[Rfam]
RNA sequence: GGUCAUGAGCGACAGCGUCAAGCCCCAGCUGGCUGUCCGGCAACCCUCCGUCCGUGGCGGGGUGCCCUGGGUGAGGACCGGGUCGCCGGGCAAGCCGUCCGCGCGACAAGCGCGGACA
Numbered sequence: 001g002g003u004c005a006u007g008a009g010c011g012a013c014a015g016c017g018u019c020a021a022g023c024c025c026c027a028g029c030u031g032g033c034u035g036u037c038c039g040g041c042a043a044c045c046c047u048c049c050g051u052c053c054g055u056g057g058c059g060g061g062g063u064g065c066c067c068u069g070g071g072u073g074a075g076g077a078c079c080g081g082g083u084c085g086c087c088g089g090g091c092a093a094g095c096c097g098u099c100c101g102c103g104c105g106a107c108a109a110g111c112g113c114g115g116a117c118a
Stems, first nucleotide, its partner, number of pairs: 001079004009038001011037006021030002039066003044062003048057002082107005087101005
The family of this 118-nucleotide RNA sequence from Kitasatospora aureofaciens is "SAM (S-adenosyl methionine) riboswitch aptamer". Rfam links the family to the GO terms S-adenosylmethionine metabolic process and regulation of gene expression. The organism belongs to Kitasatospora, within Bacteria. From the family's description: SAM-IV is a mRNA element that regulates gene expression via direct sensing of S-adenosylmethionine (SAM or AdoMet). SAM-IV riboswitches share conserved nucleotide positions with the previously described SAM-I riboswitches sequence analysis and molecular recognition experiments suggest that SAM-I and SAM-IV riboswitches share similar ligand binding sites, but have different scaffolds. The match comes from Rfam's covariance-model search (98 bits).